The family of this 282-nucleotide RNA from Candidatus Altarchaeales archaeon WOR_SM1_SCG is "Archaeal RNase P". On this family, see Frank and Pace, Annu Rev Biochem 1998: "Ribonuclease P: unity and diversity in a tRNA processing ribozyme". Ribonuclease P (RNase P) is a ubiquitous endoribonuclease, found in archaea, bacteria and eukarya as well as chloroplasts and mitochondria. Its best characterised activity is the generation of mature 5'-ends of tRNAs by cleaving the 5'-leader elements of precursor-tRNAs. Cellular RNase Ps are ribonucleoproteins. RNA from bacterial RNase Ps retains its catalytic activity in the absence of the protein subunit, i.e. it is a ribozyme.
RNA sequence: AGCAGUCCACAGGGCUUUCCGGGAAUUUUCCCGGAGGAAGUUCCAUCCACCGGAUUACCGCACAGCCGAAAGGUACCUGCGAGAGCAGGGGAUUAGUUACAGAGACGAGACGGCUGCAUAUAGAUGCGAAUGACUGUUAAAGGACAAUAUAUGCAGUCUUGUGAAACGAACAUAAUCUGUGCUUUGGUGCAACGCUUUUCGCGGCUCAGACGAAUGCCCUAAUGAGUAAUGCUUGCAUUAUGCACGGCAAAAAACUCAACAGAAGAUGGACUAUGGGCUGCU
Numbered sequence: 001a002g003c004a005g006u007c008c009a010c011a012g013g014g015c016u017u018u019c020c021g022g023g024a025a026u027u028u029u030c031c032c033g034g035a036g037g038a039a040g041u042u043c044c045a046u047c048c049a050c051c052g053g054a055u056u057a058c059c060g061c062a063c064a065g066c067c068g069a070a071a072g073g074u075a076c077c078u079g080c081g082a083g084a085g086c087a088g089g090g091g092a093u094u095a096g097u098u099a100c101a102g103a104g105a106c107g108a109g110a111c112g113g114c115u116g117c118a119u120a121u122a123g124a125u126g127c128g129a130a131u132g133a134c135u136g137u138u139a140a141a142g143g144a145c146a147a148u149a150u151a152u153g154c155a156g157u158c159u160u161g162u163g164a165a166a167c168g169a170a171c172a173u174a175a176u177c178u179g180u181g182c183u184u185u186g187g188u189g190c191a192a193c194g195c196u197u198u199u200c201g202c203g204g205c206u207c208a209g210a211c212g213a214a215u216g217c218c219c220u221a222a223u224g225a226g227u228a229a230u231g232c233u234u235g236c237a238u239u240a241u242g243c244a245c246g247g248c249a250a251a252a253a254a255c256u257c258a259a260c261a262g263a264a265g266a267u268g269g270a271c272u273a274u275g276g277g278c279u280g281c282u
Base pairs, nucleotide, nucleotide: 001282002281003280005278006277007276008275009274011220012219013218014217015216019034020033021032022031023030039272040271041270043269044268045267046266047265048189049188050187051186060182061181062180063179064178065074066073067072076089077088078087079086080085090177091176096171097170098169111161112160113159114156115155116154117153118152119151120150121149135140193203194202195201
Dot-bracket structure: (((.(((((.(((((...(((((......)))))....[[[.[[[[[((((........((((((((....))).(((((....)))))((....(((............(((((((((((.............(....)........))))))))..))).......)))....)))))))...))))...(((.....)))............)))))............................................]]]]]]]].))))).)))

The family's consensus secondary structure is taken from published work.
The source organism's lineage runs through Archaea, Nanobdellati, Candidatus Altarchaeota, Candidatus Altarchaeia and Candidatus Altarchaeales.
The family is grouped with related families in Rfam's "RNaseP clan".